[Rfam]
About this RNA
mir-87 microRNA precursor family: a 72-nucleotide sequence from Homarus americanus. The family's consensus secondary structure was predicted with RNAalifold. A reference for the family is Stark et al. (2007), "Systematic discovery and characterization of fly microRNAs using 12 Drosophila genomes", Genome Res.
RNA sequence: CGCCCAUGGGCCUGAUCCUCUGCUCAGCCCUGGUUAGUGUCAUGGUGAGCAAAGUUUCAGGUGUGUGGGAGA
Dot-bracket structure: ..(((((..((((((..((.(.((((.((..............)))))).).))..))))))..)))))...

Lineage of the source: Eukaryota > Bilateria > Arthropoda > Nephropoidea > Homarus.